RNA sequence: AUUUGCCACAUGGGGUGCCGGCGUAACCGGCUGAGAAAAAGGUGUUGCCUUUUAACCCAUCGAACCUGUUAGGUUAGUACCUGCGUAGGGAUGUGGUCAUCUGCCAUG
Numbered sequence: 001a002u003u004u005g006c007c008a009c010a011u012g013g014g015g016u017g018c019c020g021g022c023g024u025a026a027c028c029g030g031c032u033g034a035g036a037a038a039a040a041g042g043u044g045u046u047g048c049c050u051u052u053u054a055a056c057c058c059a060u061c062g063a064a065c066c067u068g069u070u071a072g073g074u075u076a077g078u079a080c081c082u083g084c085g086u087a088g089g090g091a092u093g094u095g096g097u098c099a100u101c102u103g104c105c106a107u108g
Base pairs, nucleotide, nucleotide: 006096007095008094009093010092011059012058013057014056017031018030019029020028021027038052039051040050041049042048065089066088067087068086070083071082072081073080
Dot-bracket structure: .....(((((((((..(((((.....)))))......(((((.....)))))...)))).....((((.((((......))))..))))..)))))............

A member of the RNA family "TPP riboswitch aptamer (THI element)" from Thermoanaerobacter brockii, 108 nucleotides long. Rfam's curators write: Vitamin B(1) in its active form thiamin pyrophosphate (TPP) is an essential coenzyme that is synthesised by coupling of pyrimidine and thiazole moieties in bacteria. The source organism's lineage runs through Bacteria, Bacillati, Thermoanaerobacterales, Thermoanaerobacteraceae and Thermoanaerobacter brockii. Its family is annotated with thiamine pyrophosphate binding in the Gene Ontology. Pairs were carried over by alignment from the consensus structure, which is taken from published work. The match comes from Rfam's covariance-model search (79 bits).